Notes: This 99-nucleotide RNA sequence from Oryzias latipes belongs to the Rfam family "mir-214 microRNA precursor family". Its family is annotated with miRNA-mediated post-transcriptional gene silencing and RISC complex in the Gene Ontology. The base pairs follow the family's consensus structure, which was predicted with RNAalifold. The source organism's lineage runs through Eukaryota, Deuterostomia, Vertebrata, Euteleosteomorpha and Oryzias.

RNA sequence: UCAGACCUGUUGUGGUGUGUCUGCCUGUCUACACUUGCUGUGCAGACCUUCUGCUCCUGUACAGCAGGCACAGACAGGCAGACAGAUGGCAGCCCCCCC
Numbered sequence: 001u002c003a004g005a006c007c008u009g010u011u012g013u014g015g016u017g018u019g020u021c022u023g024c025c026u027g028u029c030u031a032c033a034c035u036u037g038c039u040g041u042g043c044a045g046a047c048c049u050u051c052u053g054c055u056c057c058u059g060u061a062c063a064g065c066a067g068g069c070a071c072a073g074a075c076a077g078g079c080a081g082a083c084a085g086a087u088g089g090c091a092g093c094c095c096c097c098c099c
Base pairs, nucleotide, nucleotide: 018084019083022080023079024078025077026076027075028074029073030072034068036066037065038064039063040062041061043059044058045057